[Rfam]
Rfam assigns this 129-nucleotide RNA sequence from Castor canadensis to the family "Small nucleolar RNA SNORA1".
RNA sequence: AGUCUCAUUCCAAAUGAGAACUGGCACUGUUGACCAGUGUUCAAAAUUAGUCAACAUGACUGAAUUGAGACACAGGUCAUCCAUCACAGUAAAGGCAUUUCAGUGGUGACAGUGAGACCUCUGACAAUU
Numbered sequence: 001a002g003u004c005u006c007a008u009u010c011c012a013a014a015u016g017a018g019a020a021c022u023g024g025c026a027c028u029g030u031u032g033a034c035c036a037g038u039g040u041u042c043a044a045a046a047u048u049a050g051u052c053a054a055c056a057u058g059a060c061u062g063a064a065u066u067g068a069g070a071c072a073c074a075g076g077u078c079a080u081c082c083a084u085c086a087c088a089g090u091a092a093a094g095g096c097a098u099u100u101c102a103g104u105g106g107u108g109a110c111a112g113u114g115a116g117a118c119c120u121c122u123g124a125c126a127a128u129u
Base pairs, nucleotide, nucleotide: 002060003059004058008054023041024040025039026038027037072122074120075119076118082108083107084106085105086104087103
By type it is an H/ACA-box small nucleolar RNA. The family's consensus secondary structure was predicted with PFOLD. The source organism's lineage runs through Eukaryota, Deuterostomia, Craniata, Rodentia and Castor. Its family is annotated with RNA processing and nucleolus in the Gene Ontology. A search with the family's covariance model found it, with a score of 94 bits.